Notes
mir-29 microRNA precursor family: a 60-nucleotide RNA from Salmo salar. On this family, see Ambros, Cell 2001: "microRNAs: tiny regulators with great potential". This family represents the microRNA (miRNA) precursors mir-29. The source organism's lineage runs through Eukaryota, Euteleosteomorpha, Protacanthopterygii, Salmoninae and Salmo.

RNA sequence: CUGGUUUCACAUGGUGGUUUAGAUUAAUGUUCCCAGUGUCUAGCACCAUUUGAAAUCAGU
Numbered sequence: 001c002u003g004g005u006u007u008c009a010c011a012u013g014g015u016g017g018u019u020u021a022g023a024u025u026a027a028u029g030u031u032c033c034c035a036g037u038g039u040c041u042a043g044c045a046c047c048a049u050u051u052g053a054a055a056u057c058a059g060u
Stems, first nucleotide, its partner, number of pairs: 001059009011049006020042005